This 70-nucleotide RNA sequence from Callorhinchus milii belongs to the Rfam family "mir-2985 microRNA precursor family".
NCBI's taxonomy places the organism under Eukaryota, Opisthokonta, Chondrichthyes, Holocephali, Callorhinchus.
Rfam links the family to the GO terms RISC complex and miRNA-mediated post-transcriptional gene silencing.
The family's consensus secondary structure was predicted with RNAalifold.
Rfam's curators write: RNAs can be post-transcriptional modified, in micro RNAs (miRNA) editing of pre-mRNA is a common process.
RNA sequence: GUCAUUAAGGUAGGUGGAAUAGUGUAACAAUAUCCACAUGUUGUUAUAGUAUUCCACCUACCCUGAUGUG
Numbered sequence: 001g002u003c004a005u006u007a008a009g010g011u012a013g014g015u016g017g018a019a020u021a022g023u024g025u026a027a028c029a030a031u032a033u034c035c036a037c038a039u040g041u042u043g044u045u046a047u048a049g050u051a052u053u054c055c056a057c058c059u060a061c062c063c064u065g066a067u068g069u070g
Stems, first nucleotide, its partner, number of pairs: 003068005009062009019052003023048011